[Rfam]
The record is an 80-nucleotide RNA sequence from Polypterus senegalus, which matches "drz-agam-1 ribozyme" in Rfam.

RNA sequence: GGCUGGCAAAAUCCCAUCACCACCUCCUCGCGGUGCCGGCUGGAAACAACGACCCCAUGGGAAGUUGGCCACGGUGAGGG
Dot-bracket structure: .............((.((((((((.......)))............((((..(((...)))..)))).....))))).))